A member of the RNA family "Selenocysteine transfer RNA" from a Candidatus Krumholzibacteriia bacterium, 91 nucleotides long.
Rfam 15.1 lists 4,211 matches to the family in 3,344 species.
RNA sequence: GGGAAUGGAUGGGCCCUGGUGGACCCCGGGGACUUCAAAUCCCUUUGUCGGGCGAUGCCGUCCGAGGUGGGUUCGAUUCCCACACAUUCCC
Numbered sequence: 001g002g003g004a005a006u007g008g009a010u011g012g013g014c015c016c017u018g019g020u021g022g023a024c025c026c027c028g029g030g031g032a033c034u035u036c037a038a039a040u041c042c043c044u045u046u047g048u049c050g051g052g053c054g055a056u057g058c059c060g061u062c063c064g065a066g067g068u069g070g071g072u073u074c075g076a077u078u079c080c081c082a083c084a085c086a087u088u089c090c091c
Stems, first nucleotide, its partner, number of pairs: 001091007008083001011026003015022002028044005048065005068082004
On this family, see Mizutani and Goto, FEBS Lett 2000: "Eukaryotic selenocysteine tRNA has the 9/4 secondary structure".